[Rfam]
RNA sequence: GGAUGACUUAGAGGAGCAAUCACUAUGAGUACCUGUGGCGAGCCGGCAGCGAUGAACCGCAGGGAAAGGAUGGAUUGCCGAAGUCUGUAUGUUGCCAGGCAUUCAGGCUGGGAGUAUGGUUAACAGCUAUACUACUGUCGCCAUUUUGGUGGAGCGCUAGUUCAUCC
Numbered sequence: 001g002g003a004u005g006a007c008u009u010a011g012a013g014g015a016g017c018a019a020u021c022a023c024u025a026u027g028a029g030u031a032c033c034u035g036u037g038g039c040g041a042g043c044c045g046g047c048a049g050c051g052a053u054g055a056a057c058c059g060c061a062g063g064g065a066a067a068g069g070a071u072g073g074a075u076u077g078c079c080g081a082a083g084u085c086u087g088u089a090u091g092u093u094g095c096c097a098g099g100c101a102u103u104c105a106g107g108c109u110g111g112g113a114g115u116a117u118g119g120u121u122a123a124c125a126g127c128u129a130u131a132c133u134a135c136u137g138u139c140g141c142c143a144u145u146u147u148g149g150u151g152g153a154g155c156g157c158u159a160g161u162u163c164a165u166c167c
Stems, first nucleotide, its partner, number of pairs: 006162001008160004016078006024070001032063007082109006089102005110136002113133008138152006
RNA: Lysine riboswitch aptamer